[Rfam]
RNA sequence: CCCGGGUGCGGGGCGCCUUGGUCGGUGUGGUACAGAGAAGCCGGCUUGUUUACCUGCUCCCCCCGGG
Numbered sequence: 001c002c003c004g005g006g007u008g009c010g011g012g013g014c015g016c017c018u019u020g021g022u023c024g025g026u027g028u029g030g031u032a033c034a035g036a037g038a039a040g041c042c043g044g045c046u047u048g049u050u051u052a053c054c055u056g057c058u059c060c061c062c063c064c065g066g067g
Stems, first nucleotide, its partner, number of pairs: 001067006008061001010059003015050001017048001020046007027033002
The record is a 67-nucleotide sequence from Callipepla squamata, which matches "MAT2A 3'UTR stem loop F" in Rfam. It scores 56 bits against the family's covariance model. The family's RNA type in Rfam is cis-regulatory element. Rfam 15.1 lists 403 matches to the family in 255 species.